[Rfam]
RNA sequence: CAGGUACCGGUUCCCGCCCCGCGAACCCGCGAAGGCGACCCGGCGACC
Numbered sequence: 001c002a003g004g005u006a007c008c009g010g011u012u013c014c015c016g017c018c019c020c021g022c023g024a025a026c027c028c029g030c031g032a033a034g035g036c037g038a039c040c041c042g043g044c045g046a047c048c
Stems, first nucleotide, its partner, number of pairs: 003048003007043004015037004020031003
Description: Shown here is a 48-nucleotide RNA from Longispora fulva, a member of the family "L31-Actinobacteria ribosomal protein leader". Taxonomically the source falls in Longispora (Bacteria, Actinomycetota, Micromonosporales, Micromonosporaceae). A search with the family's covariance model found it, with a score of 46 bits. The family's RNA type in Rfam is cis-regulatory leader. The base pairs follow the family's consensus structure, which is taken from published work.